A member of the RNA family "Pseudoknot of upstream pseudoknot domain (UPD) of the 3'UTR" from Furovirus chinense, 29 nucleotides long.
RNA sequence: GGCGUCCCGCAGUACGUUUAAACUGUAGG
Numbered sequence: 001g002g003c004g005u006c007c008c009g010c011a012g013u014a015c016g017u018u019u020a021a022a023c024u025g026u027a028g029g
Base pairs, nucleotide, nucleotide: 003016004015005014007028009026010025011024012023013022
The base pairs follow the family's consensus structure, which is taken from published work. Its family is annotated with regulation of viral transcription and positive regulation of viral translation in the Gene Ontology. Rfam classes the family as a cis-regulatory element.